[Rfam]
RNA: Small nucleolar RNA SNORA26
RNA sequence: UUGCCCUCUUGAGGCUCUUGAUGCCUUAAGAGGCCAUUAUCGAGGGGUACAUCAUAGUCCUCUCUUGAACCUGGGUCAGUGGCGUCACCUCUGACUCUGAACCUGUCGAGAGGAACAAGA
Dot-bracket structure: .((((((.(....(.((.(..........)..)..).)...).))))))........(.(((((......(.(((((.(.(.......).).))))).)........))))).)......